[Rfam]
RNA sequence: GUAUAGCAUUGUUUUGCUAUCCUCAGCCAAUAACACAAUGACACGUGGAAAAUUAUCUUGCGUGUCAUUGCGUUAUUGGUCGAAAAUAGCAAAAAGUGAUAUCC
Numbered sequence: 001g002u003a004u005a006g007c008a009u010u011g012u013u014u015u016g017c018u019a020u021c022c023u024c025a026g027c028c029a030a031u032a033a034c035a036c037a038a039u040g041a042c043a044c045g046u047g048g049a050a051a052a053u054u055a056u057c058u059u060g061c062g063u064g065u066c067a068u069u070g071c072g073u074u075a076u077u078g079g080u081c082g083a084a085a086a087u088a089g090c091a092a093a094a095a096g097u098g099a100u101a102u103c104c
Stems, first nucleotide, its partner, number of pairs: 003102003012094009023083002026080009036070013050056001
Description
Rfam assigns this 104-nucleotide RNA from Prunus avium to the family "MIR6274 microRNA precursor family". Rfam 15.1 lists 342 matches to the family in 8 species.